The record is a 242-nucleotide RNA from Amborella trichopoda, which matches "MIR8562 microRNA precursor family" in Rfam.
Taxonomically the source falls in Amborella (Eukaryota, Streptophyta, Streptophytina, Embryophyta).
Rfam links the family to the GO terms RISC complex and miRNA-mediated post-transcriptional gene silencing.
[Rfam]
RNA sequence: UUUUAUACAAAUUGGAAUGAUUUGAAAUUUGGAGCGCGUGUUCAUCAAAAAUAGGCGAAUCUAUGAAAAAUAUCAAAAAAAUAUCUUACAUAAAAUAAAUUGACCAAAAUACCCCAAAAAAGUUUCAAGCGUAUUUUGGUCAAUUUUUUUUUGCGAAUUAUUUUUUUUUAUAUUUUUAUUAGGUGCGCCUCACUAAGAUGUACACACACUCCAAAUUUCAAAUCAUUCCGAUUUUUACAAAG
Numbered sequence: 001u002u003u004u005a006u007a008c009a010a011a012u013u014g015g016a017a018u019g020a021u022u023u024g025a026a027a028u029u030u031g032g033a034g035c036g037c038g039u040g041u042u043c044a045u046c047a048a049a050a051a052u053a054g055g056c057g058a059a060u061c062u063a064u065g066a067a068a069a070a071u072a073u074c075a076a077a078a079a080a081a082u083a084u085c086u087u088a089c090a091u092a093a094a095a096u097a098a099a100u101u102g103a104c105c106a107a108a109a110u111a112c113c114c115c116a117a118a119a120a121a122g123u124u125u126c127a128a129g130c131g132u133a134u135u136u137u138g139g140u141c142a143a144u145u146u147u148u149u150u151u152u153g154c155g156a157a158u159u160a161u162u163u164u165u166u167u168u169u170a171u172a173u174u175u176u177u178a179u180u181a182g183g184u185g186c187g188c189c190u191c192a193c194u195a196a197g198a199u200g201u202a203c204a205c206a207c208a209c210u211c212c213a214a215a216u217u218u219c220a221a222a223u224c225a226u227u228c229c230g231a232u233u234u235u236u237a238c239a240a241a242g
Base pairs, nucleotide, nucleotide: 001242002241003240004239006237007236009234010233011232012231013230014229015228016227017226018225019224020223021222022221023220024219025218026217027216028215029214030213031212032211033210034209036207038205039204040203041202043200044199045198061182062181063180066177067176068175069174070173071172072171073170075168076167077166078165079164080163097146098145099144100143101142102141103140104139105138106137107136108135109134110133111132112131114129116125117124118123